[Rfam]
RNA sequence: GCGGGUGUAACUCAGCGGUAGAGUGUCACCUUGCCAAGGUGAAAGUCGCGAGUUCGAAUCUCGUCACCCGCU
Dot-bracket structure: (((((((..((((.......)))).(((((.......))))).....(((((.......)))))))))))).